[Rfam]
RNA sequence: AUCGCUUCUCGGCCUUUUGGCUAAGAUCAAAGUGUAGUAUCUGUUCUUAUUAGCUUGAUAUCUAAUACGAAGUCUAUACGACUUCUAGCAUAUCGAACUGAUUUUUGAAACUCGGCAUGGCGCCUGGGGCUCUUGCUCCGGCCUUGCCACGGGUCUUCUUGCAUUGCAGUACCGCCAGAGUUAGGUCCCAAUAAU
Numbered sequence: 001a002u003c004g005c006u007u008c009u010c011g012g013c014c015u016u017u018u019g020g021c022u023a024a025g026a027u028c029a030a031a032g033u034g035u036a037g038u039a040u041c042u043g044u045u046c047u048u049a050u051u052a053g054c055u056u057g058a059u060a061u062c063u064a065a066u067a068c069g070a071a072g073u074c075u076a077u078a079c080g081a082c083u084u085c086u087a088g089c090a091u092a093u094c095g096a097a098c099u100g101a102u103u104u105u106u107g108a109a110a111c112u113c114g115g116c117a118u119g120g121c122g123c124c125u126g127g128g129g130c131u132c133u134u135g136c137u138c139c140g141g142c143c144u145u146g147c148c149a150c151g152g153g154u155c156u157u158c159u160u161g162c163a164u165u166g167c168a169g170u171a172c173c174g175c176c177a178g179a180g181u182u183a184g185g186u187c188c189c190a191a192u193a194a195u
Base pairs, nucleotide, nucleotide: 007026008025009024011022012021013020014019048067049066050065051064052063053062069085070084071083072082073081074080114148115147116146117145119143120142121141126139127138128137129136130135151188152187153186154185155184156183157179158178159177161175162174